[Rfam]
RNA sequence: AGUGUUGAUAGAGGUGCGAGUUUCAUUAGUAAAGACUUGGAGAAGGAUGAGCUUCUGUGAAAAGUCUUGAAAGGGGAAGUCGCCGAAGCAAUCAAGUCUCAUAGCUUGAUUUUGCUGGUCUGACAUUGAAUAAAUGGCAGAUUGUCAGAACAAUUUUGUUCUGGAGGGCUAUCUCACUG
Numbered sequence: 001a002g003u004g005u006u007g008a009u010a011g012a013g014g015u016g017c018g019a020g021u022u023u024c025a026u027u028a029g030u031a032a033a034g035a036c037u038u039g040g041a042g043a044a045g046g047a048u049g050a051g052c053u054u055c056u057g058u059g060a061a062a063a064g065u066c067u068u069g070a071a072a073g074g075g076g077a078a079g080u081c082g083c084c085g086a087a088g089c090a091a092u093c094a095a096g097u098c099u100c101a102u103a104g105c106u107u108g109a110u111u112u113u114g115c116u117g118g119u120c121u122g123a124c125a126u127u128g129a130a131u132a133a134a135u136g137g138c139a140g141a142u143u144g145u146c147a148g149a150a151c152a153a154u155u156u157u158g159u160u161c162u163g164g165a166g167g168g169c170u171a172u173c174u175c176a177c178u179g
Base pairs, nucleotide, nucleotide: 007173008172009171010170011169016083017082018081019080021078022077023076024075032068033067034066035065036064037063038062087116088115089114090111091110092109093108094107095106096105117143118142119141120140121139122138124136125135126134127133145164146163147162148161149160150159151158

The family of this 179-nucleotide RNA from Peribacillus loiseleuriae is "Lysine riboswitch aptamer".